The record is a 254-nucleotide RNA from Bacillus sp. V3-13, which matches "BsrG" in Rfam.
The source organism's lineage runs through Bacteria, Bacillati, Bacilli, Bacillaceae and Bacillus.
[Rfam]
RNA sequence: CUAUAGAGGCGAUAGUUUGUUUCUCAAGGGUGGUCGGCUAGCCCCAUACGAAAGGGGGUGAUGCCAUGUCGGUUUUUGAAGCGAUGAUGGUGAUGUUGUCUUUUGCCAGUUUAAUCGUCGCAGUGAUUGCCUUCAACCAAAAAAAAUAGACCUCCCUUGACCGCAAAUUGAGGGAGAGGUCUAUUUUAAUAUGAGAUAGGCCGAUCCCCUAUGGGAACGACUAUGGCAGGCCGCAGGUGCCAGUAACACUUGCG
Numbered sequence: 001c002u003a004u005a006g007a008g009g010c011g012a013u014a015g016u017u018u019g020u021u022u023c024u025c026a027a028g029g030g031u032g033g034u035c036g037g038c039u040a041g042c043c044c045c046a047u048a049c050g051a052a053a054g055g056g057g058g059u060g061a062u063g064c065c066a067u068g069u070c071g072g073u074u075u076u077u078g079a080a081g082c083g084a085u086g087a088u089g090g091u092g093a094u095g096u097u098g099u100c101u102u103u104u105g106c107c108a109g110u111u112u113a114a115u116c117g118u119c120g121c122a123g124u125g126a127u128u129g130c131c132u133u134c135a136a137c138c139a140a141a142a143a144a145a146a147u148a149g150a151c152c153u154c155c156c157u158u159g160a161c162c163g164c165a166a167a168u169u170g171a172g173g174g175a176g177a178g179g180u181c182u183a184u185u186u187u188a189a190u191a192u193g194a195g196a197u198a199g200g201c202c203g204a205u206c207c208c209c210u211a212u213g214g215g216a217a218c219g220a221c222u223a224u225g226g227c228a229g230g231c232c233g234c235a236g237g238u239g240c241c242a243g244u245a246a247c248a249c250u251u252g253c254g
Stems, first nucleotide, its partner, number of pairs: 001226004006221001009218001016204002019201003024160007032151001034149001039061001040059001042058004068130002071127001073125001081096003104122003169188003205216004232254008
Dot-bracket structure: ((((.(..(......((.(((..(((((((.(.(....((.((((.........))))).)......((.(.(.......(((..........))).......(((.............)))..).).))..................).)..)))))))........(((..............)))..........))).))((((....)))).)..).)))).....((((((((.......))))))))
For this family Rfam cites "Novel small RNA-encoding genes in the intergenic regions of Bacillus subtilis" (Saito et al., Gene, 2008).
The family has 6 seed sequences and 614 matches in Rfam 15.1.
The family's consensus secondary structure was predicted with WAR.
It scores 96 bits against the family's covariance model.
bsrE, bsrG and bsrH pair through intermolecular interactions with antisense sRNAs.